Shown here is a 259-nucleotide RNA sequence from Entomortierella chlamydospora, a member of the family "Group I catalytic intron". Rfam describes the family as follows. Group I catalytic introns are large self-splicing ribozymes. They catalyse their own excision from mRNA, tRNA and rRNA precursors in a wide range of organisms. The core secondary structure consists of 9 paired regions (P1-P9). Taxonomically the source falls in Entomortierella (Eukaryota, Mortierellomycotina, Mortierellomycetes, Mortierellaceae). The base pairs follow the family's consensus structure, which is taken from published work.
RNA sequence: UAUUCGGCGUGUACAAAUCGCUCAAAUGAAAAAUGACGGGCCUUUAUAUUGGUAACAAUAUAAUUUGUAUUAAGCUAUAUGCUGGAACCUCCUAAAGUCUUAGGUACCUUUAUUUUAAGUAAGGUAAAAAUCUUAAGAAUUGGAAAAUCAGCAGGAAACCGAUCAGAAAUUGAUAGGGAUCCUCAGAGACUACACGCUUAACAUUCUUCAUGUAUAUGAAGGAUGAUGAUAUAGUCCAAUUUAAUUUUGAAAAGAAUUA
Dot-bracket structure: (.((..............................)).)..........(.......)............[[[[.[....((((((....(((.(.............................................).)))...))))))((...((.(...........).))...))...(.(((((...].]]]]..((((((((....))))))))........))))))......(((((....)))))..